[Rfam]
RNA sequence: CUCUGGAGAGUCCGAGGAAUCGGCGCCGUAGGAGAAAUACAUGAUUUGUGUAGAAACUCUCAGGCUAAAAAAACAGAG
Numbered sequence: 001c002u003c004u005g006g007a008g009a010g011u012c013c014g015a016g017g018a019a020u021c022g023g024c025g026c027c028g029u030a031g032g033a034g035a036a037a038u039a040c041a042u043g044a045u046u047u048g049u050g051u052a053g054a055a056a057c058u059c060u061c062a063g064g065c066u067a068a069a070a071a072a073a074c075a076g077a078g
Stems, first nucleotide, its partner, number of pairs: 001078005012023004025065003028061001032059003038052004
The record is a 78-nucleotide sequence from Anaerovirgula multivorans, which matches "Glycine riboswitch aptamer" in Rfam. The match comes from Rfam's covariance-model search (46 bits).